Source information:
A member of the RNA family "6S / SsrS RNA" from Photobacterium sp. SKA34, 182 nucleotides long. A reference for the family is Wassarman and Storz (2000), "6S RNA regulates E. coli RNA polymerase activity", Cell. From the family's description: E. coli 6S RNA was the first non coding RNA to be sequenced, but its function was unknown until recently. It consists of 184 nucleotides that fold into an extended hairpin structure with a large single-stranded internal bulge. The 6S RNA specifically associates with RNA polymerase holoenzyme containing the sigma70 specificity factor. This interaction represses expression from a sigma70-dependent promoter during stationary phase. 6S RNA homologs have recently been identified in most bacterial genomes.
RNA sequence: UUAACCCUGGGGUGUGCGUCAGUGAAUGAACGUCCCCGAGCCGAUAAGCAAAUACCCAGGAUCUGCUUUUAUUAGCUAUUGAGCAUGCUCAGCUCGACUGAGAAGCCUACGGUUAAUGUUGCCGAUCCACCUUGAACUUCUGGUUCAAGGGCAUUAUUUCGCAACGGCACCUUGGGGAACUU
Numbered sequence: 001u002u003a004a005c006c007c008u009g010g011g012g013u014g015u016g017c018g019u020c021a022g023u024g025a026a027u028g029a030a031c032g033u034c035c036c037c038g039a040g041c042c043g044a045u046a047a048g049c050a051a052a053u054a055c056c057c058a059g060g061a062u063c064u065g066c067u068u069u070u071a072u073u074a075g076c077u078a079u080u081g082a083g084c085a086u087g088c089u090c091a092g093c094u095c096g097a098c099u100g101a102g103a104a105g106c107c108u109a110c111g112g113u114u115a116a117u118g119u120u121g122c123c124g125a126u127c128c129a130c131c132u133u134g135a136a137c138u139u140c141u142g143g144u145u146c147a148a149g150g151g152c153a154u155u156a157u158u159u160c161g162c163a164a165c166g167g168c169a170c171c172u173u174g175g176g177g178a179a180c181u182u
Stems, first nucleotide, its partner, number of pairs: 005177011017166003032152004038146005059128003063124001065122002070118008083106002088102005